This 129-nucleotide sequence from Phyllostomus discolor belongs to the Rfam family "U11 spliceosomal RNA". The match comes from Rfam's covariance-model search (79 bits). It is annotated as a spliceosomal small nuclear RNA.

RNA sequence: GGGCUUCUGUCGUGAGCUGCACACAUAGGGCAGCUUGAUUGCUCUACAUUCGGAAUUGACAUCAAGAGAUUUUGGAAGCAUAAUUUUUUGGUACCUGGGCAGCGAGUGAUCAUUGGUCCUGGCACCCAU
Numbered sequence: 001g002g003g004c005u006u007c008u009g010u011c012g013u014g015a016g017c018u019g020c021a022c023a024c025a026u027a028g029g030g031c032a033g034c035u036u037g038a039u040u041g042c043u044c045u046a047c048a049u050u051c052g053g054a055a056u057u058g059a060c061a062u063c064a065a066g067a068g069a070u071u072u073u074g075g076a077a078g079c080a081u082a083a084u085u086u087u088u089u090g091g092u093a094c095c096u097g098g099g100c101a102g103c104g105a106g107u108g109a110u111c112a113u114u115g116g117u118c119c120u121g122g123c124a125c126c127c128a129u
Stems, first nucleotide, its partner, number of pairs: 003079005008021003012017001023049001026046008051074007097127003102123002105120002108118004